The family of this 541-nucleotide part of an RNA from Trichinella sp. T9 is "Eukaryotic large subunit ribosomal RNA". The match comes from Rfam's covariance-model search (2742 bits). The base pairs follow the family's consensus structure, which is taken from published work.

Nucleotides: 541
Base pairs, nucleotide, nucleotide: 001476002475003474004473005472006471011024013022014021015020028181029180030179031178032177033176047124048123049122050121051120052119053118058113059111060110065107066106067105070102072100073099074098077097078096079095080094081093082092084090128160129159130158131157133155134154135153188212189211190210191209193207194206195205196204197203217228218227219226232410233409234408235407236406238404242400243399244398251397253396257393258392259391277371278370279369281368282367283366284365285364286363287362288361289360290359298355299354300353301352302351304328305327306326310322311321329333334349338347339346411466412465413464414463415462416461417460418459419458478536480533481532482531483530484529485528486527487526490525491524498520499519506515507514508513
Number, partner (000 for none) and nucleotide at each position: 001476c002475c003474u004473u005472c006471c007000g008000a009000a010000g011024u012000u013022u014021c015020c016000c017000u018000c019000a020015g021014g022013a023000u024011a025000g026000c027000u028181g029180g030179c031178a032177u033176u034000u035000g036000u037000u038000u039000g040000u041000a042000a043000c044000a045000a046000u047124u048123u049122u050121a051120u052119c053118c054000g055000g056000u057000a058113g059111a060110g061000c062000g063000a064000a065107u066106g067105a068000u069000u070102a071000g072100a073099g074098g075000u076000g077097u078096u079095g080094g081093g082092a083000a084090c085000g086000c087000a088000a089000u090084g091000u092082u093081c094080u095079c096078a097077g098074c099073c100072u101000a102070u103000u104000c105067u106066c107065a108000a109000a110060c111059u112000u113058c114000g115000a116000a117000u118053g119052g120051g121050u122049a123048a124047g125000c126000a127000a128160g129159g130158c131157g132000u133155u134154u135153u136000g137000c138000u139000u140000u141000g142000a143000u144000u145000u146000u147000a148000c149000g150000a151000u152000g153135a154134a155133a156000u157131c158130g159129c160128c161000c162000a163000a164000u165000u166000a167000g168000a169000a170000u171000g172000c173000a174000u175000a176033a177032a178031u179030g180029c181028c182000u183000a184000g185000u186000g187000g188212g189211c190210c191209a192000a193207u194206u195205u196204u197203g198000g199000u200000a201000a202000g203197c204196a205195g206194a207193a208000c209191u210190g211189g212188c213000g214000a215000u216000g217228u218227g219226g220000a221000a222000u223000g224000a225000a226219c227218c228217a229000a230000a231000a232410g233409u234408c235407a236406g237000g238404u239000u240000a241000a242400g243399g244398u245000g246000c247000c248000a249000g250000a251397c252000a253396u254000u255000g256000g257393c258392g259391c260000u261000c262000a263000u264000g265000a266000a267000a268000u269000a270000c271000c272000a273000g274000a275000a276000a277371a278370g279369g280000u281368g282367u283366u284365g285364g286363u287362c288361g289360a290359u291000a292000u293000a294000g295000a296000c297000a298355g299354c300353a301352g302351g303000a304328c305327g306326g307000u308000g309000g310322c311321c312000a313000u314000g315000g316000a317000a318000g319000u320000u321311g322310g323000a324000a325000u326306c327305c328304g329333c330000c331000a332000a333329g334349g335000a336000g337000u338347g339346u340000g341000u342000a343000a344000c345000a346339a347338c348000u349334c350000a351302c352301c353300u354299g355298c356000c357000g358000a359290a360289u361288c362287g363286a364285c365284u366283a367282g368281c369279c370278c371277u372000g373000a374000a375000a376000a377000u378000g379000g380000a381000u382000a383000g384000c385000g386000u387000u388000u389000g390000a391259g392258c393257g394000c395000c396253a397251g398244g399243c400242c401000c402000a403000u404238a405000c406236c407235u408234g409233a410232c411466c412465g413464u414463c415462u416461c417460a418459a419458u420000u421000a422000c423000g424000c425000a426000c427000u428000u429000u430000u431000u432000u433000c434000u435000u436000u437000u438000u439000u440000g441000a442000a443000a444000a445000a446000g447000g448000u449000g450000u451000a452000a453000u454000g455000a456000a457000c458419g459418u460417u461416g462415a463414g464413a465412c466411g467000g468000g469000u470000a471006g472005g473004a474003a475002g476001g477000u478536c479000g480533c481532g482531a483530c484529a485528g486527u487526g488000u489000u490525g491524c492000u493000u494000u495000g496000a497000a498520g499519a500000g501000u502000u503000u504000u505000g506515a507514g508513c509000g510000u511000g512000a513508g514507c515506u516000c517000g518000c519499u520498c521000g522000g523000a524491g525490c526487c527486g528485c529484u530483g531482u532481u533480g534000g535000u536478g537000c538000a539000g540000a541000u